[Rfam]
RNA sequence: AAAACAGAUAGAGGUGCGGAAACCAUCAGUAACCCUUUGGAAGAAAUGCGGGACGGCAAAAAGGGAUGAAAGGGGAAUCCGCCGAAGUUCGGGAGCAGGUCCGAUGGCUCCGGGGCUGGGACGCAGCAGAAUAUGCGGCGGACUGUCACUUUUGUGGAGCGCUAUCAAAAAA
Numbered sequence: 001a002a003a004a005c006a007g008a009u010a011g012a013g014g015u016g017c018g019g020a021a022a023c024c025a026u027c028a029g030u031a032a033c034c035c036u037u038u039g040g041a042a043g044a045a046a047u048g049c050g051g052g053a054c055g056g057c058a059a060a061a062a063g064g065g066a067u068g069a070a071a072g073g074g075g076a077a078u079c080c081g082c083c084g085a086a087g088u089u090c091g092g093g094a095g096c097a098g099g100u101c102c103g104a105u106g107g108c109u110c111c112g113g114g115g116c117u118g119g120g121a122c123g124c125a126g127c128a129g130a131a132u133a134u135g136c137g138g139c140g141g142a143c144u145g146u147c148a149c150u151u152u153u154g155u156g157g158a159g160c161g162c163u164a165u166c167a168a169a170a171a172a
Stems, first nucleotide, its partner, number of pairs: 007166005016082005023075002032067001034065005086117005092111005118144002122140003126136003146157004